[Rfam]
RNA sequence: GACCGACAUCAGUGAUUCGUUCUGGGAACCGUUGCCGACUGCGAGGUAUGAGUGCAUUCCCAGCUCUUUCAUCUGCUGUUCGCCGAUGACGCGAGUAACGACAUUUUUACUGUAGGAAUCAGCCAGUUGACGCGCCUGAGAGGCCAGGUAACCGGCGUUGCAGAUGUUCGGCGGCAUGUUGCCAAGAUCUUUUGC
Numbered sequence: 001g002a003c004c005g006a007c008a009u010c011a012g013u014g015a016u017u018c019g020u021u022c023u024g025g026g027a028a029c030c031g032u033u034g035c036c037g038a039c040u041g042c043g044a045g046g047u048a049u050g051a052g053u054g055c056a057u058u059c060c061c062a063g064c065u066c067u068u069u070c071a072u073c074u075g076c077u078g079u080u081c082g083c084c085g086a087u088g089a090c091g092c093g094a095g096u097a098a099c100g101a102c103a104u105u106u107u108u109a110c111u112g113u114a115g116g117a118a119u120c121a122g123c124c125a126g127u128u129g130a131c132g133c134g135c136c137u138g139a140g141a142g143g144c145c146a147g148g149u150a151a152c153c154g155g156c157g158u159u160g161c162a163g164a165u166g167u168u169c170g171g172c173g174g175c176a177u178g179u180u181g182c183c184a185a186g187a188u189c190u191u192u193u194g195c
Stems, first nucleotide, its partner, number of pairs: 005189002012032003016028003020024001033043003050059002062077003078135002081132002084129004091123002095119002099112002103108001136163003140159002143156003167186002170183003